[Rfam]
RNA sequence: CUUGAAGAAGCAUUUUGUCCACGUGGACAUAAAGCGUGCCCUUAAGGGAGCGAUUUCUGUCCACGUGAACAAAACGCUUCUUCAAGG
Numbered sequence: 001c002u003u004g005a006a007g008a009a010g011c012a013u014u015u016u017g018u019c020c021a022c023g024u025g026g027a028c029a030u031a032a033a034g035c036g037u038g039c040c041c042u043u044a045a046g047g048g049a050g051c052g053a054u055u056u057c058u059g060u061c062c063a064c065g066u067g068a069a070c071a072a073a074a075c076g077c078u079u080c081u082u083c084a085a086g087g
Stems, first nucleotide, its partner, number of pairs: 001086011013074006020067002023064007031056003035052003040047002
RNA: MIR7486 microRNA precursor family